A member of the RNA family "M-box riboswitch aptamer (ykoK leader)" from Bifidobacterium scardovii, 157 nucleotides long. A search with the family's covariance model found it, with a score of 109 bits. The pairing is the family consensus, mapped onto this sequence. Rfam 15.1 lists 1,095 matches to the family in 932 species.
RNA sequence: UUAGAGCGUCGGUAGGUGAGGCUACCGCAGGGAUAUGGGUCGCUACCGCUACCAGUGGAGACACUGCAUGCAGGUCAGCAGUUCUUGUCGGAUCAAGGCAUGAACUAGUGCGAUGCCACCGCCCUGCGAUGCUGAAGCUUGAACGAUGGCGAACCGG
Numbered sequence: 001u002u003a004g005a006g007c008g009u010c011g012g013u014a015g016g017u018g019a020g021g022c023u024a025c026c027g028c029a030g031g032g033a034u035a036u037g038g039g040u041c042g043c044u045a046c047c048g049c050u051a052c053c054a055g056u057g058g059a060g061a062c063a064c065u066g067c068a069u070g071c072a073g074g075u076c077a078g079c080a081g082u083u084c085u086u087g088u089c090g091g092a093u094c095a096a097g098g099c100a101u102g103a104a105c106u107a108g109u110g111c112g113a114u115g116c117c118a119c120c121g122c123c124c125u126g127c128g129a130u131g132c133u134g135a136a137g138c139u140u141g142a143a144c145g146a147u148g149g150c151g152a153a154c155c156g157g
Stems, first nucleotide, its partner, number of pairs: 007151004011144001013096001015139003020133003026128007039114005046073001048071002054065004081105004087099003
Dot-bracket structure: ......(((((.[.(((..(((...(((((((......(((((..(.((....((((....))))....)).).......((((..(((......])))..))))....))))).......)))))))..)))...)))....)...))))......
For this family Rfam cites "New RNA motifs suggest an expanded scope for riboswitches in bacterial genetic control" (Barrick et al., Proc Natl Acad Sci U S A, 2004). Taxonomically the source falls in Bifidobacterium (Bacteria, Bacillati, Bifidobacteriales, Bifidobacteriaceae).